[Rfam]
RNA sequence: AGCUUUGCUCAGUGGCAGUAUUAUGACCAACGAGCUCCAUCUGAGGCAUGAUUAUUGCUAAUUGAAAACUUUUCCCAGUACGACUAUUGAAAUAUAGUUUAGAUUGGCAUUUUUUGGACAGUCUGUAUGGAA
Numbered sequence: 001a002g003c004u005u006u007g008c009u010c011a012g013u014g015g016c017a018g019u020a021u022u023a024u025g026a027c028c029a030a031c032g033a034g035c036u037c038c039a040u041c042u043g044a045g046g047c048a049u050g051a052u053u054a055u056u057g058c059u060a061a062u063u064g065a066a067a068a069c070u071u072u073u074c075c076c077a078g079u080a081c082g083a084c085u086a087u088u089g090a091a092a093u094a095u096a097g098u099u100u101a102g103a104u105u106g107g108c109a110u111u112u113u114u115u116g117g118a119c120a121g122u123c124u125g126u127a128u129g130g131a132a
Base pairs, nucleotide, nucleotide: 020052021051022050023049024048027046028045034042082108084106086104087103088102090100091099092098093097122131123130124129

This 132-nucleotide sequence from Homo sapiens belongs to the Rfam family "U4 spliceosomal RNA".
Rfam's curators write: U4 small nuclear RNA (U4 snRNA) is a component of the major U2-dependent spliceosome.
The base pairs follow the family's consensus structure, which is taken from published work.